The record is a 90-nucleotide sequence from Branchiostoma belcheri, which matches "mir-2060 microRNA precursor family" in Rfam.
Rfam links the family to the GO terms RISC complex and miRNA-mediated post-transcriptional gene silencing.
Taxonomically the source falls in Branchiostoma (Eukaryota, Opisthokonta, Metazoa, Leptocardii).
The base pairs follow the family's consensus structure, which was predicted with RNAalifold.

RNA sequence: GUUUGCUUGUGGGUGGAUGGUGUUCAGCACCAAGGACAGGUUUACCUGUGUGUGGAAGGUGUUCAGCACCAAGGACAGGUUUGCUUGUGG
Numbered sequence: 001g002u003u004u005g006c007u008u009g010u011g012g013g014u015g016g017a018u019g020g021u022g023u024u025c026a027g028c029a030c031c032a033a034g035g036a037c038a039g040g041u042u043u044a045c046c047u048g049u050g051u052g053u054g055g056a057a058g059g060u061g062u063u064c065a066g067c068a069c070c071a072a073g074g075a076c077a078g079g080u081u082u083g084c085u086u087g088u089g090g
Stems, first nucleotide, its partner, number of pairs: 005080006018071007026063006034051001036049005